[Rfam]
RNA sequence: GGCCCGCUUGCAGAACUGUCGCCAUAGGGCGUGCGUUCCGGUCGCACCGGAUAGGCAGCAGGCAUCUA
Numbered sequence: 001g002g003c004c005c006g007c008u009u010g011c012a013g014a015a016c017u018g019u020c021g022c023c024a025u026a027g028g029g030c031g032u033g034c035g036u037u038c039c040g041g042u043c044g045c046a047c048c049g050g051a052u053a054g055g056c057a058g059c060a061g062g063c064a065u066c067u068a
Base pairs, nucleotide, nucleotide: 002063003062004061006059007058008057010056011055017035018034019033020031021030022029023028037051038050039049040048041047